[Rfam]
RNA sequence: GAUCAUUCUCAGGGCGGGGUGAAAUUCCCCACCGGCGGUAGGGGGCCAUCGCGCCCCAAGCCCGCGAGCGCAACGCGCCUACCCACGGGAAAGGCGCUUGGACAAGCAGAUCCGGUCAAAAUCCGGAGCCGACGGUCAUAGUCCGGAUGAAAGAGAAUGCAG
Numbered sequence: 001g002a003u004c005a006u007u008c009u010c011a012g013g014g015c016g017g018g019g020u021g022a023a024a025u026u027c028c029c030c031a032c033c034g035g036c037g038g039u040a041g042g043g044g045g046c047c048a049u050c051g052c053g054c055c056c057c058a059a060g061c062c063c064g065c066g067a068g069c070g071c072a073a074c075g076c077g078c079c080u081a082c083c084c085a086c087g088g089g090a091a092a093g094g095c096g097c098u099u100g101g102a103c104a105a106g107c108a109g110a111u112c113c114g115g116u117c118a119a120a121a122u123c124c125g126g127a128g129c130c131g132a133c134g135g136u137c138a139u140a141g142u143c144c145g146g147a148u149g150a151a152a153g154a155g156a157a158u159g160c161a162g
Stems, first nucleotide, its partner, number of pairs: 004159007017029003031142002033131002035065004060129002068107002111127005133145003
RNA: FMN riboswitch aptamer (RFN element)